RNA: Small nucleolar RNA snoR77
Organism: Citrus unshiu
RNA sequence: AGGCAGCCUCUUUGCGAUGGCCAUGGCAAAGAAAGGUGUUAAACUGCUCGUAAAUUGAUCUGCUUUUGCUCUUCAGACUUGCUGAGAUUCGUCCUUGAAGCUGGUCUAGUAGGCCUUAGCACAUU
Numbered sequence: 001a002g003g004c005a006g007c008c009u010c011u012u013u014g015c016g017a018u019g020g021c022c023a024u025g026g027c028a029a030a031g032a033a034a035g036g037u038g039u040u041a042a043a044c045u046g047c048u049c050g051u052a053a054a055u056u057g058a059u060c061u062g063c064u065u066u067u068g069c070u071c072u073u074c075a076g077a078c079u080u081g082c083u084g085a086g087a088u089u090c091g092u093c094c095u096u097g098a099a100g101c102u103g104g105u106c107u108a109g110u111a112g113g114c115c116u117u118a119g120c121a122c123a124u125u
Stems, first nucleotide, its partner, number of pairs: 002040004007036002009032007017024001063119002068114003075107005081101003086093002